[Rfam]
RNA sequence: GAUCCGGACCCAUGCGAUCGGAACGCCCAAAUCUUGUCAGGACCGGAAGGUAGCAGCAAUACGGGAUGCUUGCGAUAGGCGUGGACUCCGGGUCGCU
Numbered sequence: 001g002a003u004c005c006g007g008a009c010c011c012a013u014g015c016g017a018u019c020g021g022a023a024c025g026c027c028c029a030a031a032u033c034u035u036g037u038c039a040g041g042a043c044c045g046g047a048a049g050g051u052a053g054c055a056g057c058a059a060u061a062c063g064g065g066a067u068g069c070u071u072g073c074g075a076u077a078g079g080c081g082u083g084g085a086c087u088c089c090g091g092g093u094c095g096c097u
Stems, first nucleotide, its partner, number of pairs: 004091005010084005017076004022071001026065003034059004042051003